[Rfam]
RNA sequence: AGAUGCUCCAUCUAUAAAUGGAUAAGACCCCGGUCUUAUUGUUCUUAUUGUAUAGGAGUUAUUGAAAAAUAAAGGAGCAAUAAUUUCCUUCUUCUUCUAUAUAAGAUAGAUAAGAGGGCUUUAUUGCUCCUUUAUU
Number, nucleotide and partner (000 for none) at each position: 001a000002g000003a000004u000005g000006c000007u022008c021009c020010a019011u018012c000013u000014a000015u000016a000017a000018a011019u010020g009021g008022a007023u000024a000025a000026g000027a000028c000029c000030c000031c000032g000033g000034u000035c000036u000037u000038a000039u000040u000041g000042u000043u000044c000045u000046u000047a000048u000049u000050g000051u000052a000053u000054a000055g000056g000057a000058g000059u000060u000061a000062u000063u000064g000065a000066a000067a000068a000069a000070u000071a133072a132073a131074g130075g129076a128077g127078c126079a125080a124081u123082a122083a000084u000085u115086u114087c000088c000089u000090u110091c109092u108093u000094c000095u000096u000097c000098u000099a000100u000101a000102u000103a000104a000105g000106a000107u000108a092109g091110a090111u000112a000113a000114g086115a085116g000117g000118g000119c000120u000121u000122u082123a081124u080125u079126g078127c077128u076129c075130c074131u073132u072133u071134a000135u000136u000
Shown here is a 136-nucleotide RNA from Mitragyna speciosa, a member of the family "Plastid-psbA-1 3UTR RNA". Plastid psbA-1 is a non-coding RNA (ncRNA) present in plastids. It was identified in inverted repeat sequences in the 3 prime untranslate region (3UTR) of photosystem II quinone-binding protein (psbA). The source organism's lineage runs through Eukaryota, eudicotyledons, Gunneridae, Naucleeae and Mitragyna. It is annotated as a cis-regulatory element. Its Rfam clan is "Plastid-psbA 3UTR RNA clan".